This 102-nucleotide RNA sequence from Peromyscus maniculatus belongs to the Rfam family "Y RNA". NCBI's taxonomy places the organism under Eukaryota, Eumetazoa, Chordata, Teleostomi, Peromyscus maniculatus. It is annotated as a non-coding RNA gene.
RNA sequence: GGCUGGUCCGAAGGUAGUGAGUUAUCUCAAUUGAUUGAUCACAACCAGUUACAGAUUUCUUUGUUCCUUCUCCACUCCCACUACUUCACUUGAAUAGCAGUC
Numbered sequence: 001g002g003c004u005g006g007u008c009c010g011a012a013g014g015u016a017g018u019g020a021g022u023u024a025u026c027u028c029a030a031u032u033g034a035u036u037g038a039u040c041a042c043a044a045c046c047a048g049u050u051a052c053a054g055a056u057u058u059c060u061u062u063g064u065u066c067c068u069u070c071u072c073c074a075c076u077c078c079c080a081c082u083a084c085u086u087c088a089c090u091u092g093a094a095u096a097g098c099a100g101u102c
Base pairs, nucleotide, nucleotide: 002098003097004096005095007093008092010091011090014087016082017081018080019079021077033065034064035063037061038060